[Rfam]
RNA sequence: ACCGCACACUCACCCGUGCACGGCAGGAGCGGGGGACCCACAGGCACAACCGCCUGUUCCGGUCCCGGAACAGGCUCGGGGUAAAGCCGUGCUUCGGCACGGCCGGACAUCUCCAGUCCGCACCCGACAGCUCACCUCGCAGGCGCCGGAGAGGAAUG
Number, nucleotide and partner (000 for none) at each position: 001a000002c000003c145004g144005c143006a000007c000008a000009c000010u028011c027012a000013c000014c000015c000016g000017u000018g000019c000020a000021c000022g000023g000024c000025a000026g000027g011028a010029g140030c139031g138032g137033g136034g135035g000036a000037c000038c000039c078040a000041c000042a000043g000044g000045c000046a000047c000048a000049a000050c000051c000052g000053c000054c000055u000056g000057u000058u000059c000060c000061g000062g000063u000064c000065c000066c000067g000068g000069a000070a000071c000072a000073g000074g000075c000076u000077c000078g039079g125080g124081g123082u000083a000084a000085a000086g000087c102088c101089g100090u099091g000092c000093u000094u000095c000096g000097g000098c000099a090100c089101g088102g087103c000104c000105g119106g118107a117108c116109a000110u000111c000112u000113c000114c000115a000116g108117u107118c106119c105120g000121c000122a000123c081124c080125c079126g000127a000128c000129a000130g000131c000132u000133c000134a000135c034136c033137u032138c031139g030140c029141a000142g000143g005144c004145g003146c000147c000148g000149g000150a000151g000152a000153g000154g000155a000156a000157u000158g000
This 158-nucleotide RNA sequence from Streptomyces sp. Amel2xC10 belongs to the Rfam family "c-di-AMP riboswitch aptamer (ydaO/yuaA leader)". Taxonomically the source falls in Streptomyces (Bacteria, Bacillati, Actinomycetota, Kitasatosporales). It scores 56 bits against the family's covariance model.